[Rfam]
RNA: sodF sRNA
Organism: Streptomyces collinus
RNA sequence: ACGUCCUGCCCGUGAUCGUCUUCUCACCUUUCACGCAGGCAGGCGGAGAGAAGGAGGGCCCCCGCGAGGACGUGACUCGCGGGGGCCCUCC
Numbered sequence: 001a002c003g004u005c006c007u008g009c010c011c012g013u014g015a016u017c018g019u020c021u022u023c024u025c026a027c028c029u030u031u032c033a034c035g036c037a038g039g040c041a042g043g044c045g046g047a048g049a050g051a052a053g054g055a056g057g058g059c060c061c062c063c064g065c066g067a068g069g070a071c072g073u074g075a076c077u078c079g080c081g082g083g084g085g086c087c088c089u090c091c
Base pairs, nucleotide, nucleotide: 002045003044005043006042007041008040009039010038012034013033014032015031018028053091054090055089056088057087058086059085060084061083062082063081064080065079066078067077068076